[Rfam]
RNA: FuFi-1 RNA
RNA sequence: UCUGCCAACUAAUGGCAAUAAAUUAUGCUGAACCCAAACUGCAUAAGUGGCAGAGUGCUUUAAGAAGCAUUGGUGUCGUACAAUGCGUCGAAAGACUGCAAAGUGCAUACGGUAUAAAAAUUGGGGUAAAGGACUGUUAGUGACGGCACACUAA
Number, nucleotide and partner (000 for none) at each position: 001u054002c053003u052004g051005c050006c049007a048008a000009c000010u000011a000012a000013u000014g000015g000016c000017a000018a000019u000020a000021a000022a000023u000024u000025a000026u043027g042028c041029u000030g039031a000032a000033c125034c124035c123036a122037a121038a000039c030040u000041g028042c027043a026044u000045a000046a000047g000048u007049g006050g005051c004052a003053g002054a001055g106056u105057g104058c103059u102060u101061u000062a000063a000064g000065a000066a000067g086068c085069a084070u083071u082072g081073g000074u148075g147076u146077c145078g144079u143080a000081c072082a071083a070084u069085g068086c067087g096088u095089c094090g000091a000092a000093a000094g089095a088096c087097u000098g000099c000100a000101a060102a059103g058104u057105g056106c055107a000108u000109a000110c000111g000112g000113u000114a000115u000116a000117a000118a000119a000120a000121u037122u036123g035124g034125g033126g000127u000128a000129a000130a000131g000132g000133a000134c000135u000136g000137u154138u153139a152140g151141u150142g149143a079144c078145g077146g076147c075148a074149c142150a141151c140152u139153a138154a137